The record is a 281-nucleotide sequence from Dichanthelium oligosanthes, which matches "MIR6217 microRNA precursor family" in Rfam. Rfam 15.1 lists 2,266 matches to the family in 13 species. The match comes from Rfam's covariance-model search (124 bits).
RNA sequence: CAGCCACAGAAUAGCUUAUUCUAUGGCCACCUGAAUUUACUAUCAUGAUUCUACUGAUUUUAUGAGACUGUGGAUAUAUAUUUACGAUACAAAUAUGUUACCAUAACUAGUGAUGAUAUUUACCAUCAUCUGAUAGUAAAUCACUUGAGGGUAGUGCAGUAAAUCUCUGCAUUUGUUAUGGUAACACAUUUGUAUCGUAAAUAUGUAUUCACAGUCUCGUAAAAUCAGUAGAAUCGUGAUAGUAAAUUCAGAUGGCCAUAGAAUAAGCUAUUCUGUGGCUG
Numbered sequence: 001c002a003g004c005c006a007c008a009g010a011a012u013a014g015c016u017u018a019u020u021c022u023a024u025g026g027c028c029a030c031c032u033g034a035a036u037u038u039a040c041u042a043u044c045a046u047g048a049u050u051c052u053a054c055u056g057a058u059u060u061u062a063u064g065a066g067a068c069u070g071u072g073g074a075u076a077u078a079u080a081u082u083u084a085c086g087a088u089a090c091a092a093a094u095a096u097g098u099u100a101c102c103a104u105a106a107c108u109a110g111u112g113a114u115g116a117u118a119u120u121u122a123c124c125a126u127c128a129u130c131u132g133a134u135a136g137u138a139a140a141u142c143a144c145u146u147g148a149g150g151g152u153a154g155u156g157c158a159g160u161a162a163a164u165c166u167c168u169g170c171a172u173u174u175g176u177u178a179u180g181g182u183a184a185c186a187c188a189u190u191u192g193u194a195u196c197g198u199a200a201a202u203a204u205g206u207a208u209u210c211a212c213a214g215u216c217u218c219g220u221a222a223a224a225u226c227a228g229u230a231g232a233a234u235c236g237u238g239a240u241a242g243u244a245a246a247u248u249c250a251g252a253u254g255g256c257c258a259u260a261g262a263a264u265a266a267g268c269u270a271u272u273c274u275g276u277g278g279c280u281g
Stems, first nucleotide, its partner, number of pairs: 001281029031251003037245011051231013066218002071213002073210002076208001081201005093193003097189002099183009109173004